[Rfam]
Nucleotides: 029
Stems, first nucleotide, its partner, number of pairs: 001029004008024001010021004
Number, partner (000 for none) and nucleotide at each position: 001029u002028a003027a004026c005000c006000u007000c008024u009000g010021g011020a012019a013018a014000a015000a016000a017000g018013u019012u020011u021010c022000a023000a024008a025000u026004g027003u028002u029001g

Overview
L19-Flavobacteria ribosomal protein leader: a 29-nucleotide sequence from Pelodiscus sinensis. It scores 32 bits against the family's covariance model. The base pairs follow the family's consensus structure, which is taken from published work.